RNA sequence: CUGGGAUAUGGAGACAUGUACCCUCAGACAACCUCUGGAAUGCUGGUUGGCGCGCUGUGCGCCCUGGCGGGUGUGCUGACCAUCGCCAUGCCCGUACCUGUGAUUGUGAACAAC
Numbered sequence: 001c002u003g004g005g006a007u008a009u010g011g012a013g014a015c016a017u018g019u020a021c022c023c024u025c026a027g028a029c030a031a032c033c034u035c036u037g038g039a040a041u042g043c044u045g046g047u048u049g050g051c052g053c054g055c056u057g058u059g060c061g062c063c064c065u066g067g068c069g070g071g072u073g074u075g076c077u078g079a080c081c082a083u084c085g086c087c088a089u090g091c092c093c094g095u096a097c098c099u100g101u102g103a104u105u106g107u108g109a110a111c112a113a114c
Base pairs, nucleotide, nucleotide: 002113004111007108008107009106010105011104014101015100016099018097019096020095021094037077038076040074049063050062051061
Record summary: The family of this 114-nucleotide sequence from Mola mola is "Potassium channel RNA editing signal". The family's RNA type in Rfam is cis-regulatory element. It scores 101 bits against the family's covariance model.